Source information: mraW RNA: a 121-nucleotide RNA sequence from Arthrobacter sp. Bz4.
[Rfam]
RNA sequence: GACGGCUUCUUGGACGAGAUCUCCAGCCGCCCGGCGUACGUUCCACCUGGCUCACCUUCCCCGGAGCCAGGCGGGCACCGCGCCUGGUCGGAUGGGGAUCUGGCUCAAGAAACGUGUUGUA
Number, nucleotide and partner (000 for none) at each position: 001g000002a000003c000004g000005g000006c000007u000008u000009c000010u108011u107012g106013g105014a000015c103016g000017a000018g100019a099020u000021c097022u096023c095024c094025a093026g000027c091028c090029g089030c000031c087032c086033g085034g084035c000036g000037u000038a000039c000040g000041u077042u075043c074044c073045a000046c071047c070048u069049g068050g067051c066052u065053c064054a000055c000056c000057u000058u000059c000060c000061c000062c000063g000064g053065a052066g051067c050068c049069a048070g047071g046072c000073g044074g043075g042076c000077a041078c000079c000080g000081c000082g000083c000084c034085u033086g032087g031088u000089c029090g028091g027092a000093u025094g024095g023096g022097g021098a000099u019100c018101u000102g000103g015104c000105u013106c012107a011108a010109g000110a000111a000112a000113c000114g000115u000116g000117u000118u000119g000120u000121a000